Shown here is a 135-nucleotide sequence from Rubrivivax sp. A210, a member of the family "Glycine riboswitch aptamer". Rfam links the family to the GO term glycine biosynthetic process.
RNA sequence: UUCGACCUCACUGGAGAGAGGCCGGGCGGGUGCAAGGCACACGCCUUCGGCCCACCGAAGGGGCAAGGUCUGGCGGGCCCGAGAAGGGCUGGGCCAGCACCGAAUCUCUCAGGUAAAGCGGACAGCGAGGGCCCC
Numbered sequence: 001u002u003c004g005a006c007c008u009c010a011c012u013g014g015a016g017a018g019a020g021g022c023c024g025g026g027c028g029g030g031u032g033c034a035a036g037g038c039a040c041a042c043g044c045c046u047u048c049g050g051c052c053c054a055c056c057g058a059a060g061g062g063g064c065a066a067g068g069u070c071u072g073g074c075g076g077g078c079c080c081g082a083g084a085a086g087g088g089c090u091g092g093g094c095c096a097g098c099a100c101c102g103a104a105u106c107u108c109u110c111a112g113g114u115a116a117a118g119c120g121g122a123c124a125g126c127g128a129g130g131g132c133c134c135c
Base pairs, nucleotide, nucleotide: 006130007129008128009127011125012124013123020052021051022050023049024048025047026046054114055113056112057110058109061108062107063106067101068100